[Rfam]
RNA: Pyrrolysine insertion sequence 1
Organism: Desulfofarcimen acetoxidans
RNA sequence: UAGGGGAAUGAAACUUCACUUUCACCUGCCGGAGUUAUCGCUGCAGAUUUUCCCGGUGGGAUGAGGCCUUCUGACAGCCAUGAGGUAUCACAGUUAAAUG
Numbered sequence: 001u002a003g004g005g006g007a008a009u010g011a012a013a014c015u016u017c018a019c020u021u022u023c024a025c026c027u028g029c030c031g032g033a034g035u036u037a038u039c040g041c042u043g044c045a046g047a048u049u050u051u052c053c054c055g056g057u058g059g060g061a062u063g064a065g066g067c068c069u070u071c072u073g074a075c076a077g078c079c080a081u082g083a084g085g086u087a088u089c090a091c092a093g094u095u096a097a098a099u100g
Stems, first nucleotide, its partner, number of pairs: 010089002013086005041059004046054001